[Rfam]
RNA: GcvB RNA
RNA sequence: CGCUCAUUGGCCGGAACGAAAAGUGGAUUGGAGUUUAUUGUUCUGAGACGCUUUUGGUCUGUGAGGUGAUGUUGUGUCUACACAUUUUGACUUGAAUUUCAGGUCAGUAGCCUGGCUACACUACCUUGUUGUUAUUUACUGAACAUUUCUCUGUCUGUCCAUAGUGAAUAUGUAGCACCGCAAUAAGCGGUGCUUUUUUUU
Numbered sequence: 001c002g003c004u005c006a007u008u009g010g011c012c013g014g015a016a017c018g019a020a021a022a023g024u025g026g027a028u029u030g031g032a033g034u035u036u037a038u039u040g041u042u043c044u045g046a047g048a049c050g051c052u053u054u055u056g057g058u059c060u061g062u063g064a065g066g067u068g069a070u071g072u073u074g075u076g077u078c079u080a081c082a083c084a085u086u087u088u089g090a091c092u093u094g095a096a097u098u099u100c101a102g103g104u105c106a107g108u109a110g111c112c113u114g115g116c117u118a119c120a121c122u123a124c125c126u127u128g129u130u131g132u133u134a135u136u137u138a139c140u141g142a143a144c145a146u147u148u149c150u151c152u153g154u155c156u157g158u159c160c161a162u163a164g165u166g167a168a169u170a171u172g173u174a175g176c177a178c179c180g181c182a183a184u185a186a187g188c189g190g191u192g193c194u195u196u197u198u199u200u201u
Base pairs, nucleotide, nucleotide: 009059010058011057012056015055016054021053022052023051024050025049028046029045030044031043032042033041034040087107088106089105090104091103092102093101094100109126110125114121143173144172145171146170174194175193176192177191178190179189180188181187